RNA sequence: CUCUUAUCAAGAGUGGCGGAGGGACUGGCCCGAUGAAGCCCGGCAACCUGCAGAGCACGUCUCUGCGUGGUGCCAACACCUGCGGCGAAAGCCGAGUGAUAAGAG
Numbered sequence: 001c002u003c004u005u006a007u008c009a010a011g012a013g014u015g016g017c018g019g020a021g022g023g024a025c026u027g028g029c030c031c032g033a034u035g036a037a038g039c040c041c042g043g044c045a046a047c048c049u050g051c052a053g054a055g056c057a058c059g060u061c062u063c064u065g066c067g068u069g070g071u072g073c074c075a076a077c078a079c080c081u082g083c084g085g086c087g088a089a090a091g092c093c094g095a096g097u098g099a100u101a102a103g104a105g
Base pairs, nucleotide, nucleotide: 001105002104003103004102005101006100007099008098013041015040016039017038021031022030023029025082027080028079042074043073044072045071047070048069049067050066051065052064053063054062078097083094084093085092086091